[Rfam]
RNA sequence: AGGCUAUGAUGAGUUGAGGUAUAUCUGAUUUGGUAUUGCCAAACCCUUUGGGUGGCUCUGACCAGGAAAUGAACAGUUAAUCUUCUCUCUGAGCUU
Numbered sequence: 001a002g003g004c005u006a007u008g009a010u011g012a013g014u015u016g017a018g019g020u021a022u023a024u025c026u027g028a029u030u031u032g033g034u035a036u037u038g039c040c041a042a043a044c045c046c047u048u049u050g051g052g053u054g055g056c057u058c059u060g061a062c063c064a065g066g067a068a069a070u071g072a073a074c075a076g077u078u079a080a081u082c083u084u085c086u087c088u089c090u091g092a093g094c095u096u
Stems, first nucleotide, its partner, number of pairs: 001095001003094002038056004

Z30 small nucleolar RNA: a 96-nucleotide RNA from Callorhinchus milii. Gene Ontology terms of the family: RNA processing and nucleolus. The base pairs follow the family's consensus structure, which was predicted with PFOLD.